[Rfam]
RNA sequence: GAGUCUAACAUGUGUGCAAGUGUUAGGGUGUGGAAACCCCAGCGCGAAAUGAAAGUGAAGGGCAGCGUAAGUUGUCUGAGGUAGGAAAUGCUGCGGGCUUCGGUCUGCGGUGUGGCACUAUCGACCGAUCAUGAACCUUCGUGGUGAAAGAUUUGAGUUUGAGCACAUAUGUUGGUACCCGAAAGAUGGUGAACUAUGCCUGAGUAGGGUGAAGCCAGGGGAAACUCUGGUGGAAGCUCGUAGCGAUUCUGACGUGCAAAUCGAUCGUCAAACUUGGGUAUAGGGGCGAAAGACUAAUCGAACCAUCUAGUAGCUGGUU
Numbered sequence: 001g002a003g004u005c006u007a008a009c010a011u012g013u014g015u016g017c018a019a020g021u022g023u024u025a026g027g028g029u030g031u032g033g034a035a036a037c038c039c040c041a042g043c044g045c046g047a048a049a050u051g052a053a054a055g056u057g058a059a060g061g062g063c064a065g066c067g068u069a070a071g072u073u074g075u076c077u078g079a080g081g082u083a084g085g086a087a088a089u090g091c092u093g094c095g096g097g098c099u100u101c102g103g104u105c106u107g108c109g110g111u112g113u114g115g116c117a118c119u120a121u122c123g124a125c126c127g128a129u130c131a132u133g134a135a136c137c138u139u140c141g142u143g144g145u146g147a148a149a150g151a152u153u154u155g156a157g158u159u160u161g162a163g164c165a166c167a168u169a170u171g172u173u174g175g176u177a178c179c180c181g182a183a184a185g186a187u188g189g190u191g192a193a194c195u196a197u198g199c200c201u202g203a204g205u206a207g208g209g210u211g212a213a214g215c216c217a218g219g220g221g222a223a224a225c226u227c228u229g230g231u232g233g234a235a236g237c238u239c240g241u242a243g244c245g246a247u248u249c250u251g252a253c254g255u256g257c258a259a260a261u262c263g264a265u266c267g268u269c270a271a272a273c274u275u276g277g278g279u280a281u282a283g284g285g286g287c288g289a290a291a292g293a294c295u296a297a298u299c300g301a302a303c304c305a306u307c308u309a310g311u312a313g314c315u316g317g318u319u
Stems, first nucleotide, its partner, number of pairs: 005175013020045003026039004049056002080122005088113009124158002126155003129151002135145002178317002181314001185307006194283011205271001207239004214231007243268004248264002251262002285295002
RNA: Eukaryotic large subunit ribosomal RNA, nucleotides 842 to 1160
Organism: Phytophthora infestans